[Rfam]
RNA sequence: GUAUUUUUGCAGGGGUGGCCGAAUCGGCCUGAGAAGGUGGAAUCACCUAACCCUUCGAACCUGAUGCAGUUAGUACUGCCGUAGGGAGCAAAAAUACCUUAUGA
Dot-bracket structure: .....(((((((((..(((((...)))))......((((....))))...)))).....((((..((((......))))..))))..)))))............